Shown here is a 266-nucleotide RNA from Halalkalibacter krulwichiae, a member of the family "Bacterial large signal recognition particle RNA". The source organism's lineage runs through Bacteria, Bacillota, Caryophanales, Bacillaceae and Halalkalibacter. Rfam's curators write: The signal recognition particle (SRP) is a universally conserved ribonucleoprotein involved in the co-translational targeting of proteins to membranes.
RNA sequence: CCGUGCUAAGCGGGGAGGUAGCGGUGCCCUGUACUCGCAAUCCGCUGUAGCGAGGCCGAAUUCCCUCUCUAGGUUUUGUCACCGCGGGGUCUGACCUAAGUAAGUGGUGUUGACGCUUGGGUUCCACGCAACGGAAACCCACGAACCCUGUCAGGUCCGGAAGGAAGCAGCAGUAAGUGGCCCCUUCCGUGUGCCGUGGAGUCGCCUGAGCCGAGCUAACUGCUUAGGUAACGCCCGUGGUGGCAUUAUCGACAGAGGGUGCACGG
Numbered sequence: 001c002c003g004u005g006c007u008a009a010g011c012g013g014g015g016a017g018g019u020a021g022c023g024g025u026g027c028c029c030u031g032u033a034c035u036c037g038c039a040a041u042c043c044g045c046u047g048u049a050g051c052g053a054g055g056c057c058g059a060a061u062u063c064c065c066u067c068u069c070u071a072g073g074u075u076u077u078g079u080c081a082c083c084g085c086g087g088g089g090u091c092u093g094a095c096c097u098a099a100g101u102a103a104g105u106g107g108u109g110u111u112g113a114c115g116c117u118u119g120g121g122u123u124c125c126a127c128g129c130a131a132c133g134g135a136a137a138c139c140c141a142c143g144a145a146c147c148c149u150g151u152c153a154g155g156u157c158c159g160g161a162a163g164g165a166a167g168c169a170g171c172a173g174u175a176a177g178u179g180g181c182c183c184c185u186u187c188c189g190u191g192u193g194c195c196g197u198g199g200a201g202u203c204g205c206c207u208g209a210g211c212c213g214a215g216c217u218a219a220c221u222g223c224u225u226a227g228g229u230a231a232c233g234c235c236c237g238u239g240g241u242g243g244c245a246u247u248a249u250c251g252a253c254a255g256a257g258g259g260u261g262c263a264c265g266g
Stems, first nucleotide, its partner, number of pairs: 001266006010056002012030004017025001019023001034054005063259006072250003079243010092230002096227006104220002106217003115211008123200006129191002132189005139180004148173004156165003